[Rfam]
RNA sequence: UCAGCAAGCCGGAUGGCCGCUCCGCUCUAUGUUUCGCGUAUCGGGCGGGGAGGAAAGUCCGGGCUCCAUGGAAGCACGGUGCCGGAUAACCUCCGGCGGGGGGGUGACCCCAGGGACAGUGCCACAGAAAGCAAACCGCCCCGCCAGUUUGCAGGCGGGGUAAGGGUGAAAGGGUGCGGUAAGAGCGCACCGCGUUCUUGGCAACAAGGACGGCACGGCAAACCCCACCGGGAGCAAGACCGAAUAGGGGCGGCGCGGGAGCGGGAGACCGCUGCCAGUCGGCUUUCAGAUCAGCCGCCCGGGUUGGUUGCAUGAGGCGCGCCGCAAGGCGCACCCGAGAUGAAUGGCCAUCGCCCCGUCUCGCUUCGGCGAGCGGGGUACAGAACCCGGCUUACAGGCUUGGUGACACG
Numbered sequence: 001u002c003a004g005c006a007a008g009c010c011g012g013a014u015g016g017c018c019g020c021u022c023c024g025c026u027c028u029a030u031g032u033u034u035c036g037c038g039u040a041u042c043g044g045g046c047g048g049g050g051a052g053g054a055a056a057g058u059c060c061g062g063g064c065u066c067c068a069u070g071g072a073a074g075c076a077c078g079g080u081g082c083c084g085g086a087u088a089a090c091c092u093c094c095g096g097c098g099g100g101g102g103g104g105u106g107a108c109c110c111c112a113g114g115g116a117c118a119g120u121g122c123c124a125c126a127g128a129a130a131g132c133a134a135a136c137c138g139c140c141c142c143g144c145c146a147g148u149u150u151g152c153a154g155g156c157g158g159g160g161u162a163a164g165g166g167u168g169a170a171a172g173g174g175u176g177c178g179g180u181a182a183g184a185g186c187g188c189a190c191c192g193c194g195u196u197c198u199u200g201g202c203a204a205c206a207a208g209g210a211c212g213g214c215a216c217g218g219c220a221a222a223c224c225c226c227a228c229c230g231g232g233a234g235c236a237a238g239a240c241c242g243a244a245u246a247g248g249g250g251c252g253g254c255g256c257g258g259g260a261g262c263g264g265g266a267g268a269c270c271g272c273u274g275c276c277a278g279u280c281g282g283c284u285u286u287c288a289g290a291u292c293a294g295c296c297g298c299c300c301g302g303g304u305u306g307g308u309u310g311c312a313u314g315a316g317g318c319g320c321g322c323c324g325c326a327a328g329g330c331g332c333a334c335c336c337g338a339g340a341u342g343a344a345u346g347g348c349c350a351u352c353g354c355c356c357c358g359u360c361u362c363g364c365u366u367c368g369g370c371g372a373g374c375g376g377g378g379u380a381c382a383g384a385a386c387c388c389g390g391c392u393u394a395c396a397g398g399c400u401u402g403g404u405g406a407c408a409c410g
Base pairs, nucleotide, nucleotide: 001406002405003404005402006401007400008399009398010397011395012352013351014350015349016348017347018346020050021049022048023047024046025045026044027043055393056392057391059390060389061388062387063386064234065233066232067231074286077230078229079228080227081226082096083095084094085093086092097113098111099110100109101108114225115224119223120222121219122218123217136165137164138161139160140159141158142157143156144155145154173191174190175189176188177187178186192214193212194211195210196209197208198207199206200205238309239308240307241306248300249299250298251297252296253295279293281291283289316335317334319332320331321330322329323328

Annotation:
Bacterial RNase P class A: a 410-nucleotide sequence from Methyloceanibacter sp. The source organism's lineage runs through Bacteria, Pseudomonadota, Alphaproteobacteria, Hyphomicrobiaceae and Methyloceanibacter. By type it is a ribozyme.